[Rfam]
RNA sequence: AAGAGUCGCCCGGGUUAAUAAAAACUGAGAAAAUUAACUCAGAAAGAAA
Number, nucleotide and partner (000 for none) at each position: 001a000002a000003g000004a000005g000006u000007c000008g000009c000010c042011c000012g040013g039014g038015u037016u036017a035018a034019u033020a000021a000022a000023a000024a000025c000026u000027g000028a000029g000030a000031a000032a000033a019034u018035u017036a016037a015038c014039u013040c012041a000042g010043a000044a000045a000046g000047a000048a000049a000
Shown here is a 49-nucleotide RNA sequence from Triticum aestivum, a member of the family "Plastid-rpl16 group II-D1 intron".
Plastid-rpl16 is a non-coding RNA (ncRNA) recognised in plastids. It was recognised in and intronic region of a ribosome rpl16 gene.
Taxonomically the source falls in Triticum (Eukaryota, Magnoliopsida, Poales, Pooideae).
On this family, see Richter et al., Plant Commun 2023: "Retrograde signaling in plants: A critical review focusing on the GUN pathway and beyond".